[Rfam]
RNA sequence: CUGCAUUCUUAAACCCUCUUGGUAGCGUCGCCAGAAGCUGCCAAGAUACGAGUGAAUGCGACAGGAAACUGCAGAUCAAUCCAGAAUGCCGGGCUUGGCUCCUGUGGCCUGGCAUUCUUUCACUAAUCUGAAACAGCU
Numbered sequence: 001c002u003g004c005a006u007u008c009u010u011a012a013a014c015c016c017u018c019u020u021g022g023u024a025g026c027g028u029c030g031c032c033a034g035a036a037g038c039u040g041c042c043a044a045g046a047u048a049c050g051a052g053u054g055a056a057u058g059c060g061a062c063a064g065g066a067a068a069c070u071g072c073a074g075a076u077c078a079a080u081c082c083a084g085a086a087u088g089c090c091g092g093g094c095u096u097g098g099c100u101c102c103u104g105u106g107g108c109c110u111g112g113c114a115u116u117c118u119u120u121c122a123c124u125a126a127u128c129u130g131a132a133a134c135a136g137c138u
Base pairs, nucleotide, nucleotide: 003059004058005057006056008052009051010050017046018045019044020043021042022041024039025038026037063138064137070132072130073129074128075127085116086115087114088113089112090111091110093108094107099104

This 138-nucleotide RNA from Ornithorhynchus anatinus belongs to the Rfam family "Small nucleolar RNA SNORA14". It is annotated as an H/ACA-box small nucleolar RNA. Pairs were carried over by alignment from the consensus structure, which was predicted with RNAfold. Taxonomically the source falls in Ornithorhynchus (Eukaryota, Metazoa, Vertebrata, Mammalia). ACA14 is a member of the H/ACA class of snoRNA that guide the sites of modification of uridines to pseudouridines. It is one of the family's seed sequences. Its family is annotated with nucleolus and RNA processing in the Gene Ontology.